[Rfam]
RNA: U4 spliceosomal RNA
Nucleotides: 152
Base pairs, nucleotide, nucleotide: 021054022053023052024051027049028048029047035044036043037042086118087117088116090113092111094109131152132151133150134149
Number, partner (000 for none) and nucleotide at each position: 001000a002000u003000c004000u005000u006000u007000g008000c009000g010000c011000u012000u013000u014000g015000g016000g017000c018000a019000a020000u021054g022053a023052c024051g025000c026000a027049g028048c029047u030000a031000g032000u033000g034000a035044g036043g037042u038000a039000c040000u041000a042037a043036c044035c045000g046000a047029g048028g049027c050000a051024c052023g053022u054021c055000u056000a057000u058000u059000g060000c061000u062000g063000g064000u065000u066000g067000a068000a069000a070000a071000c072000u073000a074000u075000u076000u077000c078000c079000a080000a081000a082000c083000c084000a085000c086118c087117u088116c089000u090113u091000c092111g093000a094109c095000c096000u097000u098000g099000g100000u101000u102000c103000u104000g105000g106000c107000u108000u109094g110000g111092c112000c113090a114000u115000c116088g117087a118086g119000a120000a121000u122000u123000u124000u125000u126000g127000g128000a129000a130000g131152g132151g133150c134149u135000u136000c137000c138000c139000u140000a141000u142000u143000g144000g145000g146000u147000a148000a149134g150133g151132u152131c